RNA: BsrC
RNA sequence: GAUUUUUCAAACAACGAAAGCCCUGCCUCUCUUUCAUCCUUGCGGCUCCGAAGCCGCGCCAGUGCGAAUGAGUCUAUCGAAAAGCUU
Number, nucleotide and partner (000 for none) at each position: 001g000002a000003u000004u000005u000006u000007u000008c000009a000010a000011a000012c000013a000014a000015c000016g000017a000018a000019a000020g000021c000022c000023c000024u000025g000026c000027c000028u000029c000030u000031c000032u000033u000034u067035c066036a000037u000038c000039c062040u061041u058042g057043c056044g055045g054046c053047u052048c000049c000050g000051a000052a047053g046054c045055c044056g043057c042058g041059c000060c000061a040062g039063u000064g000065c000066g035067a034068a000069u000070g000071a000072g000073u000074c000075u000076a000077u000078c000079g000080a000081a000082a000083a000084g000085c000086u000087u000